[Rfam]
The record is a 71-nucleotide RNA sequence from Gasterosteus aculeatus, which matches "Small nucleolar RNA SNORD79" in Rfam. The base pairs follow the family's consensus structure, which was predicted with PFOLD. Rfam's curators put it in the seed alignment. Rfam 15.1 lists 784 matches to the family in 651 species. From the family's description: snoRNA U79 or Z22 is found in intron 7 of the gas5 gene in humans and is also present in mice. Rfam links the family to the GO terms nucleolus and RNA processing. The family is grouped with related families in Rfam's "SNORD74 clan".
Nucleotides: 071
Stems, first nucleotide, its partner, number of pairs: 003069005
Number, partner (000 for none) and nucleotide at each position: 001000a002000a003069c004068u005067g006066u007065a008000a009000a010000u011000g012000a013000u014000g015000a016000u017000a018000c019000u020000u021000g022000g023000g024000a025000a026000u027000c028000u029000c030000u031000c032000u033000g034000a035000a036000a037000a038000a039000a040000g041000u042000g043000a044000a045000a046000g047000a048000c049000u050000a051000a052000c053000u054000u055000u056000u057000u058000u059000u060000a061000c062000u063000g064000a065007u066006a067005c068004a069003g070000a071000a